[Rfam]
Source information
FMN riboswitch aptamer (RFN element): a 168-nucleotide RNA from Tengunoibacter tsumagoiensis. Its family is annotated with FMN binding in the Gene Ontology. The RFN element is a highly conserved domain that is found frequently in the 5'-untranslated regions of prokaryotic mRNAs that encode for flavin mononucleotide (FMN) biosynthesis and transport proteins. This element is a metabolite-dependent riboswitch that directly binds FMN in the absence of proteins. In Bacillus subtilis, the riboswitch most likely controls gene expression by causing premature transcription termination within the 5' untranslated region of the ribDEAHT operon and precluding access to the ribosome-binding site of ypaA mRNA.The FMN riboswitch structure, reported in present an FMN-bound six-stem junction, adopts a butterfly-like scaffold, stapled together by opposingly directed but nearly identically folded peripheral domains. The source organism's lineage runs through Bacteria, Bacillati, Chloroflexota, Dictyobacteraceae and Tengunoibacter.

RNA sequence: AAGAACCUUCGGGGCAGGGUGAAAUUCCCGACCGGCGGUAAGACACUUUUGUGGACAGAAGUGUUAAGCCCGCGAGCACAUCAUCAACGACUCUGUGUGUUGAUGGGAAUGAGCAGACUCGGUGUGAUUCCGAGGCCGACGGUACAGUCCGGAUGGGAGAAGGUUUAU
Numbered sequence: 001a002a003g004a005a006c007c008u009u010c011g012g013g014g015c016a017g018g019g020u021g022a023a024a025u026u027c028c029c030g031a032c033c034g035g036c037g038g039u040a041a042g043a044c045a046c047u048u049u050u051g052u053g054g055a056c057a058g059a060a061g062u063g064u065u066a067a068g069c070c071c072g073c074g075a076g077c078a079c080a081u082c083a084u085c086a087a088c089g090a091c092u093c094u095g096u097g098u099g100u101u102g103a104u105g106g107g108a109a110u111g112a113g114c115a116g117a118c119u120c121g122g123u124g125u126g127a128u129u130c131c132g133a134g135g136c137c138g139a140c141g142g143u144a145c146a147g148u149c150c151g152g153a154u155g156g157g158a159g160a161a162g163g164u165u166u167a168u
Stems, first nucleotide, its partner, number of pairs: 003166008017029003031148002033138002035073004068136002076114002118134005140151003
It scores 119 bits against the family's covariance model.